[Rfam]
RNA: Rhodo-rpoB RNA
Organism: Pseudoruegeria sp. SK021
RNA sequence: UGGUCGGAAGGCGCCCCCUGGGAAGGGUGCCAGCAUGGACCGUCCCCCCUGUUUCAAGGAUGCACCCCGUGGCCCCGGCGGUGGUUGUU
Numbered sequence: 001u002g003g004u005c006g007g008a009a010g011g012c013g014c015c016c017c018c019u020g021g022g023a024a025g026g027g028u029g030c031c032a033g034c035a036u037g038g039a040c041c042g043u044c045c046c047c048c049c050u051g052u053u054u055c056a057a058g059g060a061u062g063c064a065c066c067c068c069g070u071g072g073c074c075c076c077g078g079c080g081g082u083g084g085u086u087g088u089u
Stems, first nucleotide, its partner, number of pairs: 001042005010031007062088003065083001067081003